[Rfam]
RNA: Eukaryotic large subunit ribosomal RNA, nucleotides 883 to 1375
RNA sequence: CCUGCCGAAGUUUCCCUCAGGAUAGCAGAAGCUCGUUACAAACAGUUUUAUGAGGUAAAGCGAAUGAUUAGAGGUCUCGGGGCGGAAAUAGCCUUAGCCUAUUCUCAAACUUUAAAUAUGUAAGAAGUCCUUGUUGCUUAAUUGAACGUGGACAUACGAAUGUAGAGCUUUUAGUGGGCCAUUUUUGGUAAGCAGAACUGGCGAUGCGGGAUGAACCGAACGCGAAGUUAAAGUGCCGGAAUGCACGCUCAUCAGACACCACAAAAGGUGUUAGUUCAUCUAGACAGCCGGACGGUGGCCAUGGAAGUCGGAAUUCCGCUAAGGAGUGUGUAACAACUCACCGGCCGAAUGAACUAGCCCUGAAAAUGGAUGGCGCUCAAGCGUGCUACUUAUACUUCGCCGGCAUUUUUUUUGGAAAUGCCGAGUAGGCAGGCGUGGAGGUGGUGACGAAGCCUUGGCUGUGAAGCUGGGUCGAACCGCCUCUAGUGCAGAU
Numbered sequence: 001c002c003u004g005c006c007g008a009a010g011u012u013u014c015c016c017u018c019a020g021g022a023u024a025g026c027a028g029a030a031g032c033u034c035g036u037u038a039c040a041a042a043c044a045g046u047u048u049u050a051u052g053a054g055g056u057a058a059a060g061c062g063a064a065u066g067a068u069u070a071g072a073g074g075u076c077u078c079g080g081g082g083c084g085g086a087a088a089u090a091g092c093c094u095u096a097g098c099c100u101a102u103u104c105u106c107a108a109a110c111u112u113u114a115a116a117u118a119u120g121u122a123a124g125a126a127g128u129c130c131u132u133g134u135u136g137c138u139u140a141a142u143u144g145a146a147c148g149u150g151g152a153c154a155u156a157c158g159a160a161u162g163u164a165g166a167g168c169u170u171u172u173a174g175u176g177g178g179c180c181a182u183u184u185u186u187g188g189u190a191a192g193c194a195g196a197a198c199u200g201g202c203g204a205u206g207c208g209g210g211a212u213g214a215a216c217c218g219a220a221c222g223c224g225a226a227g228u229u230a231a232a233g234u235g236c237c238g239g240a241a242u243g244c245a246c247g248c249u250c251a252u253c254a255g256a257c258a259c260c261a262c263a264a265a266a267g268g269u270g271u272u273a274g275u276u277c278a279u280c281u282a283g284a285c286a287g288c289c290g291g292a293c294g295g296u297g298g299c300c301a302u303g304g305a306a307g308u309c310g311g312a313a314u315u316c317c318g319c320u321a322a323g324g325a326g327u328g329u330g331u332a333a334c335a336a337c338u339c340a341c342c343g344g345c346c347g348a349a350u351g352a353a354c355u356a357g358c359c360c361u362g363a364a365a366a367u368g369g370a371u372g373g374c375g376c377u378c379a380a381g382c383g384u385g386c387u388a389c390u391u392a393u394a395c396u397u398c399g400c401c402g403g404c405a406u407u408u409u410u411u412u413u414g415g416a417a418a419u420g421c422c423g424a425g426u427a428g429g430c431a432g433g434c435g436u437g438g439a440g441g442u443g444g445u446g447a448c449g450a451a452g453c454c455u456u457g458g459c460u461g462u463g464a465a466g467c468u469g470g471g472u473c474g475a476a477c478c479g480c481c482u483c484u485a486g487u488g489c490a491g492a493u
Stems, first nucleotide, its partner, number of pairs: 001433006011024001013022003027172007046125007058113001059111002065107003070102001072100003077097001079095004127153004132148004178202004183197005207218003222400005228394001232390003241387001243386001246383003266361003270358010287345005293318003299311002319323001324339001328337002401423009434488001436485010452472002458467003